Notes:
Histone 3' UTR stem-loop: a 46-nucleotide sequence from Patiria miniata. From the family's description: The mRNAs of metazoan histone genes lack a poly-A tail. 3' end processing occurs at a site between a highly conserved stem-loop (modelled by this family) and a purine rich region around 20 nts downstream (the histone downstream element, or HDE). The stem-loop is bound by a 31 kDa stem-loop binding protein (SLBP - also termed the histone hairpin binding protein, or HBP). Together with U7 snRNA binding of the HDE, SLBP binding nucleate s the formation of the processing complex. The histone 3' UTR stem-loop is also involved in nucleocytoplasmic transport of the mRNA, and in stability regulation and translation efficiency in the cytoplasm. By type it is a cis-regulatory element. Taxonomically the source falls in Patiria (Eukaryota, Opisthokonta, Eumetazoa, Valvatacea).
RNA sequence: CCCCCGGUUCUUUUCAGAACCACACAUACUCACAAAAGAGAUUUUG
Numbered sequence: 001c002c003c004c005c006g007g008u009u010c011u012u013u014u015c016a017g018a019a020c021c022a023c024a025c026a027u028a029c030u031c032a033c034a035a036a037a038g039a040g041a042u043u044u045u046g
Base pairs, nucleotide, nucleotide: 006021007020008019009018010017011016